This 145-nucleotide RNA from Thamnophis sirtalis belongs to the Rfam family "Small nucleolar RNA SNORA79". Rfam classes the family as an H/ACA-box small nucleolar RNA. A search with the family's covariance model found it, with a score of 94 bits. ACA65 (SNORA79) is a member of the H/ACA class of snoRNAs that guide the sites of modification of uridines to pseudouridines. This snoRNA was identified by computational screening and its expression in mouse experimentally verified by Northern blot and primer extension analysis.
[Rfam]
RNA sequence: UGAUGGCUGUUCCUCUCACUGUUGCAAGCCUCAAACAGCGGGAUUUUAUGUCAUCAGAUACUAACGUGACCUUUCUUCACUCAAAAGUGUCUUUAGAUGGGUUGGCCGUCUGUGACACGGUUGAAUUUUGCGGGGUCACACAUUC
Numbered sequence: 001u002g003a004u005g006g007c008u009g010u011u012c013c014u015c016u017c018a019c020u021g022u023u024g025c026a027a028g029c030c031u032c033a034a035a036c037a038g039c040g041g042g043a044u045u046u047u048a049u050g051u052c053a054u055c056a057g058a059u060a061c062u063a064a065c066g067u068g069a070c071c072u073u074u075c076u077u078c079a080c081u082c083a084a085a086a087g088u089g090u091c092u093u094u095a096g097a098u099g100g101g102u103u104g105g106c107c108g109u110c111u112g113u114g115a116c117a118c119g120g121u122u123g124a125a126u127u128u129u130g131c132g133g134g135g136u137c138a139c140a141c142a143u144u145c
Stems, first nucleotide, its partner, number of pairs: 001056007014043004020037004068137006081124004087118004095111005